[Rfam]
RNA sequence: UCCGUGGUGACGCGGAAUCUGAAGGAAGCUGGAGGCAAAACACCGGUCCGAGGAACACGAAUCUCAUACAAGGCUAGUUACGACUGGAUGAGUUUGCAACACAAAACAAAGUCCUUUCUGUCGAAGGUCAUACCUAGUAAAUGAGGCGGAUAGAUGGUGUAAAAGUGCAUGUG
Numbered sequence: 001u002c003c004g005u006g007g008u009g010a011c012g013c014g015g016a017a018u019c020u021g022a023a024g025g026a027a028g029c030u031g032g033a034g035g036c037a038a039a040a041c042a043c044c045g046g047u048c049c050g051a052g053g054a055a056c057a058c059g060a061a062u063c064u065c066a067u068a069c070a071a072g073g074c075u076a077g078u079u080a081c082g083a084c085u086g087g088a089u090g091a092g093u094u095u096g097c098a099a100c101a102c103a104a105a106a107c108a109a110a111g112u113c114c115u116u117u118c119u120g121u122c123g124a125a126g127g128u129c130a131u132a133c134c135u136a137g138u139a140a141a142u143g144a145g146g147c148g149g150a151u152a153g154a155u156g157g158u159g160u161a162a163a164a165g166u167g168c169a170u171g172u173g
Stems, first nucleotide, its partner, number of pairs: 001016006030171002035166002040160006046151005062146006073138003077134001079132002082129003086114004092107004
Rfam assigns this 173-nucleotide sequence from Bacillus sp. B1-b2 to the family "Group II catalytic intron D1-D4-3". The organism belongs to Bacillus, within Bacteria.